[Rfam]
RNA: MIR2629 microRNA precursor family
Organism: Medicago truncatula
RNA sequence: UACCGAGGUUUUCCUCGGUAGUUAACUGUAGCCGGUUCCAAUAAAUUUUGACAGUUAACUGCCGAGGGGGCU
Numbered sequence: 001u002a003c004c005g006a007g008g009u010u011u012u013c014c015u016c017g018g019u020a021g022u023u024a025a026c027u028g029u030a031g032c033c034g035g036u037u038c039c040a041a042u043a044a045a046u047u048u049u050g051a052c053a054g055u056u057a058a059c060u061g062c063c064g065a066g067g068g069g070g071c072u
Stems, first nucleotide, its partner, number of pairs: 012068002015065015